Rfam assigns this 170-nucleotide sequence from Streptomyces sp. Ru71 to the family "c-di-AMP riboswitch aptamer (ydaO/yuaA leader)". The match comes from Rfam's covariance-model search (54 bits).

RNA sequence: CGCGUACACGCGCCGCAGGCAGGAGCGGGGGACCCAAGGUAAGUGCCGUACCCGGCGGUUGAGCCGGAGCGGCUAGGGGUGGAGCCACGCCUCCCAGGGGGAGGGGUGGCCGGGCAACUCAACCGGCCCGAACCCGACAGCUCACCUCGCAGGCGUCGGUGAGGGGAUCC
Numbered sequence: 001c002g003c004g005u006a007c008a009c010g011c012g013c014c015g016c017a018g019g020c021a022g023g024a025g026c027g028g029g030g031g032a033c034c035c036a037a038g039g040u041a042a043g044u045g046c047c048g049u050a051c052c053c054g055g056c057g058g059u060u061g062a063g064c065c066g067g068a069g070c071g072g073c074u075a076g077g078g079g080u081g082g083a084g085c086c087a088c089g090c091c092u093c094c095c096a097g098g099g100g101g102a103g104g105g106g107u108g109g110c111c112g113g114g115c116a117a118c119u120c121a122a123c124c125g126g127c128c129c130g131a132a133c134c135c136g137a138c139a140g141c142u143c144a145c146c147u148c149g150c151a152g153g154c155g156u157c158g159g160u161g162a163g164g165g166g167a168u169c170c
Stems, first nucleotide, its partner, number of pairs: 001152001005024001007022001025150006035076001077135003085109004112129004